RNA sequence: UAUGGAGAAGCCGAAAACCAUAGAAACAGAGUAGGCA
Numbered sequence: 001u002a003u004g005g006a007g008a009a010g011c012c013g014a015a016a017a018c019c020a021u022a023g024a025a026a027c028a029g030a031g032u033a034g035g036c037a
Stems, first nucleotide, its partner, number of pairs: 002021004010036003
RNA: DUF805b RNA